[Rfam]
RNA sequence: GCAGCGGCACCGCCGAGUCCGCCUUCGCGCGGAGCCGGGGACCCACCCUCACCGGGGUGAAUCGGCCUGCCUCCAGGCCGUAGGGCGACUUCCACGUCCGAACCCGUCAGCUAACCCGGUAGGCGGCAUAUGGAAGAAGGA
Numbered sequence: 001g002c003a004g005c006g007g008c009a010c011c012g013c014c015g016a017g018u019c020c021g022c023c024u025u026c027g028c029g030c031g032g033a034g035c036c037g038g039g040g041a042c043c044c045a046c047c048c049u050c051a052c053c054g055g056g057g058u059g060a061a062u063c064g065g066c067c068u069g070c071c072u073c074c075a076g077g078c079c080g081u082a083g084g085g086c087g088a089c090u091u092c093c094a095c096g097u098c099c100g101a102a103c104c105c106g107u108c109a110g111c112u113a114a115c116c117c118g119g120u121a122g123g124c125g126g127c128a129u130a131u132g133g134a135a136g137a138a139g140g141a
Stems, first nucleotide, its partner, number of pairs: 011125004018033005034120006044054001055105003063080004083099004
c-di-AMP riboswitch aptamer (ydaO/yuaA leader): a 141-nucleotide sequence from Actinomadura latina.
The source organism's lineage runs through Bacteria, Actinomycetes, Streptosporangiales, Thermomonosporaceae and Actinomadura.